[Rfam]
RNA: MIR6152 microRNA precursor family
RNA sequence: UGUAUUCGAUUGUAUUCAACUGUAUUCACGGCGUGAAACAGGGGAUUACACUGUUUAUAAAUAGAAAGUGAAUCAAUUAACAUAAUCGACUCCU
Numbered sequence: 001u002g003u004a005u006u007c008g009a010u011u012g013u014a015u016u017c018a019a020c021u022g023u024a025u026u027c028a029c030g031g032c033g034u035g036a037a038a039c040a041g042g043g044g045a046u047u048a049c050a051c052u053g054u055u056u057a058u059a060a061a062u063a064g065a066a067a068g069u070g071a072a073u074c075a076a077u078u079a080a081c082a083u084a085a086u087c088g089a090c091u092c093c094u
Base pairs, nucleotide, nucleotide: 002091007088008087009086010085011084012083013082015080016079018078019077021075022074024073025072026071027070028069029068033062034061036056037055038054039053040052041051